[Rfam]
RNA sequence: GUUUUCUGAGUUGCGCGGAGGCUGAAAAACUCGGAACAGCCUGUGUUGUCAUCAGCUUCGUCUCUUAUUACACUGUGAGAUGGGAGUUAAAUAACAGCACGAGAUUC
Dot-bracket structure: .........................................(((((((.....((((((.((((............))))..))))))......)))))))......